[Rfam]
RNA sequence: AAUAAUAAUAAUAAUAAUAUCUUGGAAAAACAGGGUAUAUAAACCAUUGACUCUUAUUAUUUCACUAAAAUUAGAUUAGGUACUUGCACAAUUCACUGCACAGAGUAAUCCUCCAAUAUGAAAAGAACAUUAAAAAAUA
Numbered sequence: 001a002a003u004a005a006u007a008a009u010a011a012u013a014a015u016a017a018u019a020u021c022u023u024g025g026a027a028a029a030a031c032a033g034g035g036u037a038u039a040u041a042a043a044c045c046a047u048u049g050a051c052u053c054u055u056a057u058u059a060u061u062u063c064a065c066u067a068a069a070a071u072u073a074g075a076u077u078a079g080g081u082a083c084u085u086g087c088a089c090a091a092u093u094c095a096c097u098g099c100a101c102a103g104a105g106u107a108a109u110c111c112u113c114c115a116a117u118a119u120g121a122a123a124a125g126a127a128c129a130u131u132a133a134a135a136a137a138u139a
Base pairs, nucleotide, nucleotide: 002020003019004018006016007015009013023059024058025057026055027054029052031049032048033047034044036042060123061122062121063120064119072098073097074096076095078093080089081088103113104112105111
Dot-bracket structure: .(((.((.(...).)).)))..(((((.(.((((.(.....).)..)))..).)).)))(((((.......(((.(.(.((......))...).))))....(((.....))).....)))))................